This 118-nucleotide RNA from Breoghania sp. L-A4 belongs to the Rfam family "Rhizobiales sRNA Atu_C8". Pairs were carried over by alignment from the consensus structure, which was predicted with CMfinder. The organism belongs to Breoghania, within Bacteria. A search with the family's covariance model found it, with a score of 59 bits.
RNA sequence: GACCUUUUCGAAGGUCAUUCUUGUAGUAGGAAGGCGCGCCUCCACGAUGGGUUGAUCCCCGUCGGGAAUGCAGGCGCGCAUGCAGGGCACCUCCGGGGGCCCUUUUUUAUUGCCUGAA
Number, nucleotide and partner (000 for none) at each position: 001g000002a000003c000004c000005u000006u000007u028008u000009c026010g000011a000012a000013g000014g000015u000016c000017a000018u000019u000020c000021u000022u000023g000024u000025a000026g009027u000028a007029g114030g113031a000032a111033g000034g079035c078036g077037c076038g075039c074040c073041u072042c000043c000044a000045c064046g063047a062048u061049g060050g059051g000052u000053u000054g000055a000056u000057c000058c000059c050060c049061g048062u047063c046064g045065g000066g000067a000068a000069u000070g000071c000072a041073g040074g039075c038076g037077c036078g035079c034080a000081u000082g000083c000084a103085g102086g101087g100088c099089a000090c097091c096092u000093c000094c000095g000096g091097g090098g000099g088100c087101c086102c085103u084104u000105u000106u000107u000108u000109a000110u000111u032112g000113c030114c029115u000116g000117a000118a000